[Rfam]
RNA sequence: GCUGAUCACCAGAGGAGCUCUUAAUCGAGCUGAGAUUGCCAUUUCGGCUAAACUCUUGGAACCUGAUCUGGAUUAUACCAGCGUAGGAAGAGUGAUAGAUUUUGUUU
Numbered sequence: 001g002c003u004g005a006u007c008a009c010c011a012g013a014g015g016a017g018c019u020c021u022u023a024a025u026c027g028a029g030c031u032g033a034g035a036u037u038g039c040c041a042u043u044u045c046g047g048c049u050a051a052a053c054u055c056u057u058g059g060a061a062c063c064u065g066a067u068c069u070g071g072a073u074u075a076u077a078c079c080a081g082c083g084u085a086g087g088a089a090g091a092g093u094g095a096u097a098g099a100u101u102u103u104g105u106u107u
Stems, first nucleotide, its partner, number of pairs: 006095004011056004017030004038048003062087004068081004
Dot-bracket structure: .....((((.((((..((((......)))).......(((.....)))....)))).....((((..((((......))))..))))....))))............
RNA: TPP riboswitch aptamer (THI element)